[Rfam]
RNA sequence: UCCCUCCAAAUCCCUUUCCCAUCGGAUCUGAAUACCGAUCUGGUGGUCGAAAAAGGAGGAAAAGUAAAAUUUCGGCUGGUCAGGGCCUCGGCUGGUGCAGUCCUGCUCUGAGAGGG
Numbered sequence: 001u002c003c004c005u006c007c008a009a010a011u012c013c014c015u016u017u018c019c020c021a022u023c024g025g026a027u028c029u030g031a032a033u034a035c036c037g038a039u040c041u042g043g044u045g046g047u048c049g050a051a052a053a054a055g056g057a058g059g060a061a062a063a064g065u066a067a068a069a070u071u072u073c074g075g076c077u078g079g080u081c082a083g084g085g086c087c088u089c090g091g092c093u094g095g096u097g098c099a100g101u102c103c104u105g106c107u108c109u110g111a112g113a114g115g116g
Base pairs, nucleotide, nucleotide: 003059004058005057006056007055019046020045021044022043023042025040026039027038028037076105078103079102081100